[Rfam]
RNA sequence: AGGUGAUUUUGGCAAACCCGGCGAAAGCCGGCGACGCAAAGCUAGAGGGCCUUACCUUCCCCGGUUGGCAGCCAGCUGCACUG
Number, nucleotide and partner (000 for none) at each position: 001a000002g000003g000004u000005g000006a000007u000008u000009u000010u000011g000012g037013c036014a000015a000016a000017c000018c031019c030020g029021g028022c027023g000024a000025a000026a000027g022028c021029c020030g019031g018032c000033g000034a000035c000036g013037c012038a000039a000040a077041g076042c075043u074044a000045g000046a000047g073048g072049g069050c068051c067052u000053u000054a000055c000056c000057u000058u000059c000060c000061c000062c000063g000064g000065u000066u000067g051068g050069c049070a000071g000072c048073c047074a043075g042076c041077u040078g000079c000080a000081c000082u000083g000